[Rfam]
Background:
The family of this 233-nucleotide RNA from Metapseudomonas resinovorans is "sRNA regulator of biofilms A". The organism belongs to Metapseudomonas resinovorans, within Bacteria. The literature on the family includes a 2017 paper in PLoS One by Taylor et al., "A novel small RNA is important for biofilm formation and pathogenicity in Pseudomonas aeruginosa". About the family: Important for biofilm formation and pathogenicity. Bacterial strain with deleted SrbA had reduced biofilm mass. As the ability to form biofilms can contribute to the ability a pathogen to thrive within the host, the C. elegans hosts infected with the srbA deleted strain displayed significantly lower mortality rate than the wild-type strain. However, the deletion of srbA had no effect on growth or antibiotic resistance in P. aeruginosa.

Nucleotides: 233
Stems, first nucleotide, its partner, number of pairs: 005024008028058004036053003040049002060155002063153003067149001072082003084139002088136003117129002163171002175204003182197004211228001213226001215224001
Number, partner (000 for none) and nucleotide at each position: 001000g002000c003000c004000a005024g006023g007022g008021g009020c010019c011018c012017u013000g014000a015000a016000u017012a018011g019010g020009g021008c022007c023006u024005c025000c026000g027000g028058a029057u030056c031055g032000c033000g034000c035000u036053c037052u038051c039000a040049g041048c042000c043000a044000a045000c046000c047000a048041g049040c050000c051038g052037a053036g054000c055031c056030g057029a058028u059000c060155c061154g062000c063153g064152u065151u066000g067149u068000g069000a070000a071000a072082g073081c074080c075000c076000a077000a078000a079000a080074g081073g082072c083000a084139g085138u086000g087000c088136g089135a090134c091000a092000a093000g094000g095000u096000u097000g098000c099000g100000a101000c102000u103000g104000g105000a106000a107000c108000g109000u110000a111000g112000u113000u114000g115000u116000c117129c118128u119000g120000a121000g122000g123000g124000a125000c126000g127000g128118g129117g130000a131000a132000g133000c134090g135089u136088c137000a138085g139084c140000a141000a142000c143000a144000u145000c146000a147000g148000c149067a150000a151065g152064a153063u154061c155060g156000a157000a158000g159000g160000c161000a162000g163171u164170g165000c166000c167000c168000g169000g170164c171163a172000g173000a174000u175204c176203g177202c178000c179000c180000a181000a182197c183196g184195g185194u186000u187000a188000c189000c190000a191000c192000g193000a194185a195184c196183c197182g198000g199000c200000a201000a202177g203176c204175g205000a206000g207000u208000c209000a210000g211228g212000a213226g214000c215224g216000c217000a218000a219000a220000a221000c222000c223000a224215c225000c226213c227000a228211u229000c230000g231000a232000u233000c
By type it is a small RNA. Pairs were carried over by alignment from the consensus structure, which was predicted with R-scape.